[Rfam]
RNA sequence: AAAGUGAGACGGGUAGUCGCGGCGCAUGCCGAGGAAAGUCCGGACUCCACGGGCAAGGAUGCUGGGUAAUUCCCAGGGGGAGCGAUCCCCGGUAAGGGCCAUAGAGAUGAAGACCGCUGAAAAGCAAGGGUGGAACGGUGGGGUAAGAGCCCACCAGGUCCGGGGUGACCCGGAUGCUUGGUAACCCCCAUCCGGAGCAAGUCCAAGCAGGAAGGGUUUGAGGAUGCCCGCCGAAUCCCCUUCCGGGUAGGACGCUUGAGGGAUGCGGGAACGCAUCUCCCAGAUAGAUGACUACCUAAGACAGAAUCCGGCUUAUAGUCUCACUUUCCAG
Dot-bracket structure: ((((((((((((((((((.((((....))))....[[[.[[[[[((((...[[[..((((((((((.....)))))(((((....)))))((...(((((.............(((((....)))..)).......((((((.......)))))).((((((((....))))))).)..)))..)))))))))))))...((((......(.((((......(((.(..]]]).))).)))).).....))))......((((((((....))))))))..........)))))))..........]]]]]]]].).))))))))))....
Bacterial RNase P class A: a 331-nucleotide sequence from Kosmotoga arenicorallina. The base pairs follow the family's consensus structure, which is taken from published work. It is annotated as a ribozyme.